c-di-AMP riboswitch aptamer (ydaO/yuaA leader): a 132-nucleotide RNA from Vallitalea pronyensis. It scores 103 bits against the family's covariance model. NCBI's taxonomy places the organism under Bacteria, Bacillati, Clostridia, Vallitaleaceae, Vallitalea. Pairs were carried over by alignment from the consensus structure. From the family's description: This family represents a conserved RNA structure found upstream of the ydaO and yuaA genes in Bacillus subtilis and related genes in other bacteria. The ydaO/yuaA element is thought to act as a genetic 'off' switch for the ydaO and yuaA genes in its native state.
RNA sequence: UAAUAGCACAUGCUUAAUUCGUAAGAAGCGGGGGACCCACCUUUUUGGGGCGAAUUCCAUUGUAUAAUGGAUAGGAUACUCUUUCAGUCCGAGCCCGACAGCUAACCUCGUCAGCGUUGAAAGAGAGUACGC
Dot-bracket structure: ..........((((...(((....)))((((((....((......))(((.....((((........))))..((((.........))))...))).........)))))).))))................
Numbered sequence: 001u002a003a004u005a006g007c008a009c010a011u012g013c014u015u016a017a018u019u020c021g022u023a024a025g026a027a028g029c030g031g032g033g034g035a036c037c038c039a040c041c042u043u044u045u046u047g048g049g050g051c052g053a054a055u056u057c058c059a060u061u062g063u064a065u066a067a068u069g070g071a072u073a074g075g076a077u078a079c080u081c082u083u084u085c086a087g088u089c090c091g092a093g094c095c096c097g098a099c100a101g102c103u104a105a106c107c108u109c110g111u112c113a114g115c116g117u118u119g120a121a122a123g124a125g126a127g128u129a130c131g132c
Stems, first nucleotide, its partner, number of pairs: 011116004018027003028111006038047002048096003056071004074090004